[Rfam]
RNA sequence: GGGGACCUUCGGGGCCCUAUAACCCGGGCGGGACACUCGCCCAAUCACAUAGGUGGGACCAAGUUCCUGCCGUUUGCUAAACGGAAGACAGAAA
Numbered sequence: 001g002g003g004g005a006c007c008u009u010c011g012g013g014g015c016c017c018u019a020u021a022a023c024c025c026g027g028g029c030g031g032g033a034c035a036c037u038c039g040c041c042c043a044a045u046c047a048c049a050u051a052g053g054u055g056g057g058a059c060c061a062a063g064u065u066c067c068u069g070c071c072g073u074u075u076g077c078u079a080a081a082c083g084g085a086a087g088a089c090a091g092a093a094a
Stems, first nucleotide, its partner, number of pairs: 001018004006014003027071007

Annotation: Shown here is a 94-nucleotide RNA from Roseovarius aestuarii, a member of the family "L2-Alphaproteobacteria ribosomal protein leader". Taxonomically the source falls in Roseovarius (Bacteria, Pseudomonadati, Pseudomonadota, Roseobacteraceae). By type it is a cis-regulatory leader. The match comes from Rfam's covariance-model search (64 bits). For this family Rfam cites "Discovery of 20 novel ribosomal leader candidates in bacteria and archaea" (Eckert and Weinberg, BMC Microbiol, 2020).